[Rfam]
RNA sequence: UUUGGGAAAUGAUGUUACUUUCAAAUUCACAGACCAAAUAUUUUUUGUGCGGUGCUGAUAUUUCGCACGUCAGUCUGAUCCCAAA
Numbered sequence: 001u002u003u004g005g006g007a008a009a010u011g012a013u014g015u016u017a018c019u020u021u022c023a024a025a026u027u028c029a030c031a032g033a034c035c036a037a038a039u040a041u042u043u044u045u046u047g048u049g050c051g052g053u054g055c056u057g058a059u060a061u062u063u064c065g066c067a068c069g070u071c072a073g074u075c076u077g078a079u080c081c082c083a084a085a
Stems, first nucleotide, its partner, number of pairs: 001085007
The record is an 85-nucleotide sequence from Kingdonia uniflora, which matches "Small nucleolar RNA Z122" in Rfam. Its family is annotated with nucleolus and RNA processing in the Gene Ontology. For this family Rfam cites "The high diversity of snoRNAs in plants: identification and comparative study of 120 snoRNA genes from Oryza sativa" (Chen et al., Nucleic Acids Res, 2003). The family's consensus secondary structure was predicted with PFOLD. The source organism's lineage runs through Eukaryota, Viridiplantae, Tracheophyta, Circaeasteraceae and Kingdonia.